[Rfam]
RNA sequence: AGAGUGAGGGAGUCCAGGAGGACGCGGCAAACCUGCGAGUCUUCACGGAGGCUAUGACCAGGUACUCUGCCCCUCCCGGAGAUCCCCCCCAG
Numbered sequence: 001a002g003a004g005u006g007a008g009g010g011a012g013u014c015c016a017g018g019a020g021g022a023c024g025c026g027g028c029a030a031a032c033c034u035g036c037g038a039g040u041c042u043u044c045a046c047g048g049a050g051g052c053u054a055u056g057a058c059c060a061g062g063u064a065c066u067c068u069g070c071c072c073c074u075c076c077c078g079g080a081g082a083u084c085c086c087c088c089c090c091a092g
Base pairs, nucleotide, nucleotide: 006087008085009084010083013080014079015078017076018075020073021072026071027070028069030066031063032062033061034060035059038053039052040051041050042049043048
Dot-bracket structure: .....(.(((..(((.((.((....(((.((((((..((((((....)))))).....)))))..)..))))).)).)))..))).).....
Rfam assigns this 92-nucleotide sequence to the family "Hepatitis C virus stem-loop SL8670". By type it is a cis-regulatory element. On this family, see Pirakitikulr et al., Mol Cell 2016: "The Coding Region of the HCV Genome Contains a Network of Regulatory RNA Structures". It is one of the family's seed sequences.